[Rfam]
RNA sequence: UCUGCCUCACCUUGCAGAUGAGACCCUAUCAAUAUUGCCUCUGCUUUCACUUGGUUAACAGAGUAGUGCAAUAUUGCUUAUAGGGUCUUGACUCUGAGGGAUG
Numbered sequence: 001u002c003u004g005c006c007u008c009a010c011c012u013u014g015c016a017g018a019u020g021a022g023a024c025c026c027u028a029u030c031a032a033u034a035u036u037g038c039c040u041c042u043g044c045u046u047u048c049a050c051u052u053g054g055u056u057a058a059c060a061g062a063g064u065a066g067u068g069c070a071a072u073a074u075u076g077c078u079u080a081u082a083g084g085g086u087c088u089u090g091a092c093u094c095u096g097a098g099g100g101a102u103g
Base pairs, nucleotide, nucleotide: 020089021088022087023086024085025084026083027082028081029080030076031075032074033073034072035071036070037069038068041066042065043064044063045062
Notes:
Shown here is a 103-nucleotide sequence from Parambassis ranga, a member of the family "mir-454 microRNA precursor family". Its family is annotated with miRNA-mediated post-transcriptional gene silencing and RISC complex in the Gene Ontology. For this family Rfam cites "MicroRNA profile of Marek's disease virus-transformed T-cell line MSB-1: predominance of virus-encoded microRNAs" (Yao et al., J Virol, 2008). The base pairs follow the family's consensus structure, which was predicted with RNAalifold. Taxonomically the source falls in Parambassis (Eukaryota, Chordata, Gnathostomata, Actinopteri). It scores 80 bits against the family's covariance model.